[Rfam]
RNA sequence: GCUUUAUUAAGAAUGGUGGAGGGACUGGCCCUGUGAAACCUGGCAACCUACUAACAGCUUUAGUGUGGUGCUAAAUCCAGCAGAUUAUUAGAUCUGAAAGAUAAAGU
Numbered sequence: 001g002c003u004u005u006a007u008u009a010a011g012a013a014u015g016g017u018g019g020a021g022g023g024a025c026u027g028g029c030c031c032u033g034u035g036a037a038a039c040c041u042g043g044c045a046a047c048c049u050a051c052u053a054a055c056a057g058c059u060u061u062a063g064u065g066u067g068g069u070g071c072u073a074a075a076u077c078c079a080g081c082a083g084a085u086u087a088u089u090a091g092a093u094c095u096g097a098a099a100g101a102u103a104a105a106g107u
Base pairs, nucleotide, nucleotide: 001107002106003105004104005103006102007101008100013041015040016039017038021031022030023029025080026079027078028077042072043071044070045069047068048067050064051063052062053061076099081096082095083094084093085092086091

Description
This 107-nucleotide RNA from Clostridium isatidis belongs to the Rfam family "SAM riboswitch aptamer (S box leader)". About the family: The SAM riboswitch is found upstream of a number of genes which code for proteins involved in methionine or cysteine biosynthesis in Gram-positive bacteria.